The record is a 54-nucleotide RNA from Salmo salar, which matches "UnaL2 LINE 3' element" in Rfam. Its family is annotated with transposition, RNA-mediated in the Gene Ontology.
RNA sequence: UCUGAGUCAAAAUGCAAGCCGCUCUGGAUAAGAGCGUCUGCUAAAUGACUUAAA
Numbered sequence: 001u002c003u004g005a006g007u008c009a010a011a012a013u014g015c016a017a018g019c020c021g022c023u024c025u026g027g028a029u030a031a032g033a034g035c036g037u038c039u040g041c042u043a044a045a046u047g048a049c050u051u052a053a054a
Base pairs, nucleotide, nucleotide: 013043014041015040016039020036021035022034023033024032025031
On this family, see Baba et al., RNA 2004: "Solution structure of an RNA stem-loop derived from the 3' conserved region of eel LINE UnaL2".